RNA sequence: AUGGUAAAUGGAUGAUGAUUCAAUUAGAUGUGCGAAUGGUUUCAUCAUGACCUCAAAAACUCUAUUUGGCAAUUUAUCUGACAUCUCCCAU
Numbered sequence: 001a002u003g004g005u006a007a008a009u010g011g012a013u014g015a016u017g018a019u020u021c022a023a024u025u026a027g028a029u030g031u032g033c034g035a036a037u038g039g040u041u042u043c044a045u046c047a048u049g050a051c052c053u054c055a056a057a058a059a060c061u062c063u064a065u066u067u068g069g070c071a072a073u074u075u076a077u078c079u080g081a082c083a084u085c086u087c088c089c090a091u
Stems, first nucleotide, its partner, number of pairs: 001091004006086001008084003
Annotation
This 91-nucleotide RNA from Arabidopsis thaliana belongs to the Rfam family "Small nucleolar RNA Z266". On this family, see Chen et al., Nucleic Acids Res 2003: "The high diversity of snoRNAs in plants: identification and comparative study of 120 snoRNA genes from Oryza sativa". The base pairs follow the family's consensus structure, which was predicted with PFOLD. Gene Ontology terms of the family: nucleolus and RNA processing.